Shown here is a 188-nucleotide RNA from Melghiribacillus thermohalophilus, a member of the family "6S / SsrS RNA". The family's RNA type in Rfam is non-coding RNA gene. Taxonomically the source falls in Melghiribacillus (Bacteria, Bacillati, Bacilli, Bacillaceae). Rfam 15.1 lists 5,006 matches to the family in 4,638 species. E. coli 6S RNA was the first non coding RNA to be sequenced, but its function was unknown until recently. It consists of 184 nucleotides that fold into an extended hairpin structure with a large single-stranded internal bulge.
[Rfam]
RNA sequence: UCAAUCCUGAUGUGUACGUCAUUGCCACAAAGUUUUGACCGAACACUUAUACUUACGGGAGCCUGAGUUUCUGUGUGGAAUGCAUGCCUCCUUUCCAUAGUGAGAGGAAGCAUAAAGCAUGGGACAGGGCACCCACCUGCCAGGAGCGGGUUCAAAACGACAGGGAUGACGGCACAAUUGGGAUUAUU
Numbered sequence: 001u002c003a004a005u006c007c008u009g010a011u012g013u014g015u016a017c018g019u020c021a022u023u024g025c026c027a028c029a030a031a032g033u034u035u036u037g038a039c040c041g042a043a044c045a046c047u048u049a050u051a052c053u054u055a056c057g058g059g060a061g062c063c064u065g066a067g068u069u070u071c072u073g074u075g076u077g078g079a080a081u082g083c084a085u086g087c088c089u090c091c092u093u094u095c096c097a098u099a100g101u102g103a104g105a106g107g108a109a110g111c112a113u114a115a116a117g118c119a120u121g122g123g124a125c126a127g128g129g130c131a132c133c134c135a136c137c138u139g140c141c142a143g144g145a146g147c148g149g150g151u152u153c154a155a156a157a158c159g160a161c162a163g164g165g166a167u168g169a170c171g172g173c174a175c176a177a178u179u180g181g182g183a184u185u186a187u188u
Stems, first nucleotide, its partner, number of pairs: 003185009012175004017171003032158007039150002057134003061130004068124001070123007082111002087107004